Overview: The family of this 244-nucleotide sequence from Synechococcus sp. CBW1004 is "psaA RNA". Taxonomically the source falls in Synechococcus (Bacteria, Bacillati, Synechococcales, Synechococcaceae).
RNA sequence: CUUAUACUUCCGCCAGCGGUCCCCUUUCGGGGCCCCAUGCCCCAGCCGGGGGUCAGCCCUCUCCCCAGUCGGGGCAAGGGUUUUCCCGUCCCGCGGCUGGGGCCCAUGGCCUGGAUGGGUCCCAGCGACUCCUCCUGGUCAUAGGUCCCACGGCGAUCCCGGCUCCGCCCUGGCGGUGCCUUCAGGGGUCGUCGAAGGGGUGGACCUCCACCUCGAUUCCGUCCCUCGAGGAACCUCUCGAUGA
Numbered sequence: 001c002u003u004a005u006a007c008u009u010c011c012g013c014c015a016g017c018g019g020u021c022c023c024c025u026u027u028c029g030g031g032g033c034c035c036c037a038u039g040c041c042c043c044a045g046c047c048g049g050g051g052g053u054c055a056g057c058c059c060u061c062u063c064c065c066c067a068g069u070c071g072g073g074g075c076a077a078g079g080g081u082u083u084u085c086c087c088g089u090c091c092c093g094c095g096g097c098u099g100g101g102g103c104c105c106a107u108g109g110c111c112u113g114g115a116u117g118g119g120u121c122c123c124a125g126c127g128a129c130u131c132c133u134c135c136u137g138g139u140c141a142u143a144g145g146u147c148c149c150a151c152g153g154c155g156a157u158c159c160c161g162g163c164u165c166c167g168c169c170c171u172g173g174c175g176g177u178g179c180c181u182u183c184a185g186g187g188g189u190c191g192u193c194g195a196a197g198g199g200g201u202g203g204a205c206c207u208c209c210a211c212c213u214c215g216a217u218u219c220c221g222u223c224c225c226u227c228g229a230g231g232a233a234c235c236u237c238u239c240g241a242u243g244a
Base pairs, nucleotide, nucleotide: 018205020203021200022199023198024197025196026195027194029151030149031148032147034145035144039103040102042100043099044098045097046096047095048094051091052090054088106142107141109139110138111137113135114134115133118130119129120128121127152193153192154191155190156189157188158187159186160185211231212230213229214228215227216226
Dot-bracket structure: .................(.((((((((.((((.((...((.(((((((..((.(.................................).))..))))))).))..((.(((.(((..((((.....))))..))).))).)).)).))).)(((((((((........................))))))))))))))))..).).....((((((.........)))))).............